[Rfam]
RNA: BsrG
Organism: Oceanobacillus bengalensis
Nucleotides: 265
Stems, first nucleotide, its partner, number of pairs: 001236005007228003011224001012208002016162008025152003031062003035059007069131004083096002108121001173188002209223002212221002242265004247260005
Number, partner (000 for none) and nucleotide at each position: 001236a002235a003234g004233u005232g006000u007228u008227a009226a010000u011224a012208g013207g014000g015000u016162u017161u018160c019159a020158u021157g022156g023155g024000u025152g026151g027150u028000g029000a030000c031062u032061c033060a034000c035059u036058c037057c038056c039055u040054u041053u042000a043000u044000u045000u046000u047000u048000u049000a050000a051000g052000g053041a054040a055039g056038g057037g058036g059035g060033u061032g062031a063000u064000a065000u066000g067000a068000u069131g070130a071129c072128a073000a074000u075000u076000u077000u078000c079000c080000a081000g082000g083096c084095g085000c086000u087000u088000g089000u090000g091000u092000u093000a094000a095084u096083g097000a098000u099000u100000u101000c102000a103000u104000u105000u106000u107000c108121c109000a110000g111000c112000c113000u114000g115000a116000u117000u118000g119000u120000g121108g122000c123000u124000a125000u126000u127000c128072u129071g130070u131069c132000a133000u134000u135000u136000c137000a138000u139000c140000a141000a142000a143000a144000a145000a146000a147000a148000u149000a150027a151026c152025c153000a154000c155023c156022c157021u158020a159019u160018g161017a162016g163000c164000c165000u166000g167000a168000c169000g170000a171000g172000c173188a174187u175000g176000u177000u178000a179000g180000g181000g182000u183000a184000g185000u186000u187174a188173u189000u190000u191000c192000u193000c194000u195000a196000a197000u198000u199000u200000u201000c202000g203000u204000g205000a206000g207013u208012c209223g210222c211000c212221c213220c214000c215000u216000u217000g218000a219000a220213g221212g222210g223209c224011u225000a226009u227008u228007a229000c230000a231000c232005u233004a234003c235002u236001u237000u238000a239000g240000a241000c242265u243264g244263g245262a246000u247260g248259g249258u250257g251256u252000u253000a254000c255000a256251g257250c258249a259248c260247c261000g262245u263244u264243c265242a